RNA: FMN riboswitch aptamer (RFN element)
Organism: Diaphorobacter ruginosibacter
RNA sequence: CCACGUUCUCAGGGCGGGGCGCAAUUCCCCACCGGCGGUAUCUGGCGCACCUUGCAAAGAGUGACGCCAGCAGCCCGCGAGCGCCGAGACCCUUGCAACAAGGGCCUUGGGUCAGCAGAUCUGGUGAGAUGCCAGGGCCGACGGUCACAGUCCGGAUGAAAGAGAAACGUGA
Numbered sequence: 001c002c003a004c005g006u007u008c009u010c011a012g013g014g015c016g017g018g019g020c021g022c023a024a025u026u027c028c029c030c031a032c033c034g035g036c037g038g039u040a041u042c043u044g045g046c047g048c049a050c051c052u053u054g055c056a057a058a059g060a061g062u063g064a065c066g067c068c069a070g071c072a073g074c075c076c077g078c079g080a081g082c083g084c085c086g087a088g089a090c091c092c093u094u095g096c097a098a099c100a101a102g103g104g105c106c107u108u109g110g111g112u113c114a115g116c117a118g119a120u121c122u123g124g125u126g127a128g129a130u131g132c133c134a135g136g137g138c139c140g141a142c143g144g145u146c147a148c149a150g151u152c153c154g155g156a157u158g159a160a161a162g163a164g165a166a167a168c169g170u171g172a
Base pairs, nucleotide, nucleotide: 003170004169005168006167007165008164009163010162017029018028019027031151032150033140034139035078036077037076038075073138074137081116082115120136121135122134123133124132142154143153144152
Dot-bracket structure: ..((((((((......(((.......))).[[((((((..................................[[))))..((................................))...(((((.......)))))]])).(((.....]]))).......)))).))))..